[Rfam]
RNA sequence: GGGGGCGUUUUAGACUCGCUCGGGGAAGCGGUGGCAAUAGUUGCGCGUCGAGAUUCCACCUGGUCUCGUUAAACGGUGGGCAAAAAUAGUUAACGAAAACAAUUACGCUCUAGCUGCCUAAGUGCCGCUAGCAUUCUGCCUUCAGAACCUACGAUGAAGGGUCAGAGUGUCAAUUAAGUAGGACGCUCUAAUGUCAAUGCUCGGAGACAUUAGCUAAGAUCAUCGAGCUAGCCUGAACUGAAUCCUUGCCUUUAGGAGUCAAGACUGGCGAAACUUAAAUUAAAGGAUACACGCGUAGACGCUUUUGUGGUCGCUCUUCGAUACAGGGGUGCAAUUCCCCUCGCCUCCACCA
Numbered sequence: 001g002g003g004g005g006c007g008u009u010u011u012a013g014a015c016u017c018g019c020u021c022g023g024g025g026a027a028g029c030g031g032u033g034g035c036a037a038u039a040g041u042u043g044c045g046c047g048u049c050g051a052g053a054u055u056c057c058a059c060c061u062g063g064u065c066u067c068g069u070u071a072a073a074c075g076g077u078g079g080g081c082a083a084a085a086a087u088a089g090u091u092a093a094c095g096a097a098a099a100c101a102a103u104u105a106c107g108c109u110c111u112a113g114c115u116g117c118c119u120a121a122g123u124g125c126c127g128c129u130a131g132c133a134u135u136c137u138g139c140c141u142u143c144a145g146a147a148c149c150u151a152c153g154a155u156g157a158a159g160g161g162u163c164a165g166a167g168u169g170u171c172a173a174u175u176a177a178g179u180a181g182g183a184c185g186c187u188c189u190a191a192u193g194u195c196a197a198u199g200c201u202c203g204g205a206g207a208c209a210u211u212a213g214c215u216a217a218g219a220u221c222a223u224c225g226a227g228c229u230a231g232c233c234u235g236a237a238c239u240g241a242a243u244c245c246u247u248g249c250c251u252u253u254a255g256g257a258g259u260c261a262a263g264a265c266u267g268g269c270g271a272a273a274c275u276u277a278a279a280u281u282a283a284a285g286g287a288u289a290c291a292c293g294c295g296u297a298g299a300c301g302c303u304u305u306u307g308u309g310g311u312c313g314c315u316c317u318u319c320g321a322u323a324c325a326g327g328g329g330u331g332c333a334a335u336u337c338c339c340c341u342c343g344c345c346u347c348c349a350c351c352a
Base pairs, nucleotide, nucleotide: 001348002347003346004345005344006343007342020321021320022319023318024317025316026315032310034308035307036306037305039303040302041301044295045294046293047292048291049068050067051066052065053064055080056079057078058077059076060075110131111130112129113128114127116125117124132169133168134167135166136165137164139160140159141158142157143156144155148182149181150180151179152178188213189212190211191210192209193208194207195206199228200227201226202225203224231269232268233267235265239261240260243257244256245255250286251285252282254280325341326340327339328338329337
Overview:
This 352-nucleotide RNA sequence from Desulfosporosinus sp. HMP52 belongs to the Rfam family "transfer-messenger RNA". The family is grouped with related families in Rfam's "tRNA clan". By type it is a non-coding RNA gene. About the family: Bacterial tmRNA, also known as 10Sa RNA or SsrA, is named for its dual tRNA and mRNA-like properties. Its role is to liberate the mRNA from a stalled ribosome. To accomplish this part of the tmRNA is used as a reading frame that ends in a translation stop signal. The broken mRNA is replaced in the ribosome by the tmRNA and translation of the tmRNA leads to addition of a proteolysis tag to the incomplete protein enabling recognition by a protease. Recently a number of permuted tmRNA genes have been found encoded in two parts. tmRNAs have been identified in eubacteria and some chloroplasts but are absent from archaeal and eukaryote nuclear genomes.